Rfam assigns this 71-nucleotide sequence from Strigamia maritima to the family "mir-34 microRNA precursor family". Taxonomically the source falls in Strigamia (Eukaryota, Ecdysozoa, Arthropoda, Mandibulata). The match comes from Rfam's covariance-model search (61 bits). Human mir-34a was discovered computationally and later experimentally verified. The mature sequence is excised from the 5' arm of the hairpin. Its Rfam clan is "mir-34 clan". A reference for the family is Lim et al. (2003), "Vertebrate microRNA genes", Science. The family's consensus secondary structure was predicted with RNAalifold. Gene Ontology terms of the family: RISC complex and miRNA-mediated post-transcriptional gene silencing.
[Rfam]
RNA sequence: UGUGAUUUGGCAGUGUGGUUAGCUGGUUGUGUGCUAGUGGACACAGCCACUAUCUACACUGUCGCCUUACG
Numbered sequence: 001u002g003u004g005a006u007u008u009g010g011c012a013g014u015g016u017g018g019u020u021a022g023c024u025g026g027u028u029g030u031g032u033g034c035u036a037g038u039g040g041a042c043a044c045a046g047c048c049a050c051u052a053u054c055u056a057c058a059c060u061g062u063c064g065c066c067u068u069a070c071g
Base pairs, nucleotide, nucleotide: 002070003069004068005067009063010062012060013059014058015057016056017055018054020052021051022050024049025048026047027046028045029044030043031042
Dot-bracket structure: .((((...((.(((((((.(((.((((((((..........))))))))))).))))))).))...)))).